[Rfam]
RNA sequence: CUCUGGCCUGGUUCAAGUAAUCCAGGAUAGGCUGAUUCCCACACGCUCGGCCUAUUCUUGAUUACUUGUUUCAGGAGGGAG
Numbered sequence: 001c002u003c004u005g006g007c008c009u010g011g012u013u014c015a016a017g018u019a020a021u022c023c024a025g026g027a028u029a030g031g032c033u034g035a036u037u038c039c040c041a042c043a044c045g046c047u048c049g050g051c052c053u054a055u056u057c058u059u060g061a062u063u064a065c066u067u068g069u070u071u072c073a074g075g076a077g078g079g080a081g
Base pairs, nucleotide, nucleotide: 002080003079004078007075008074009073010072011071014068015067016066017065018064019063020062021061022060024058025057026056027055028054029053030052031051032050033049
RNA: mir-26 microRNA precursor family